Notes: Purine riboswitch aptamer: a 100-nucleotide RNA from Moritella sp. PE36. About the family: Riboswitches are metabolite binding domains within certain messenger RNAs that serve as precision sensors for their corresponding targets. The organism belongs to Moritella, within Bacteria.

RNA sequence: AACUACGUCAUUAAAUCACUUCGUAUAAUCCCAAUAAUAUGGUUUGGGAGUUUCUACCAAGAUCCUUAAACUCUUGAUUAUGAAGUCUGUAACUUUAAAA
Numbered sequence: 001a002a003c004u005a006c007g008u009c010a011u012u013a014a015a016u017c018a019c020u021u022c023g024u025a026u027a028a029u030c031c032c033a034a035u036a037a038u039a040u041g042g043u044u045u046g047g048g049a050g051u052u053u054c055u056a057c058c059a060a061g062a063u064c065c066u067u068a069a070a071c072u073c074u075u076g077a078u079u080a081u082g083a084a085g086u087c088u089g090u091a092a093c094u095u096u097a098a099a100a
Base pairs, nucleotide, nucleotide: 018086019085020084021083022082023081024080025079029049030048031047032046033045034044058076059075060074061073062072